[Rfam]
RNA sequence: UGACGUCAGUUCCUCCUCCUGCUCCCAGUUCAGCAGUGUGGAUUUUAUGAUGUCACAGAAUAAGCUGGAGUCCAUUUCACCCGGGCGGGUGUUUUGGGGGCAGCAGUGCUGCUGCCCCGGUAACCUCCUGGUUUUGCUGGAUACUACAAAU
Dot-bracket structure: ((((((((.....(((.(.((((........))))..).))).....))))))))..............(((((......(((((.((.(......(((((((((....)))))))))...).)).)))))......))))).........
RNA: Small nucleolar RNA SNORA79
Organism: Muraenolepis orangiensis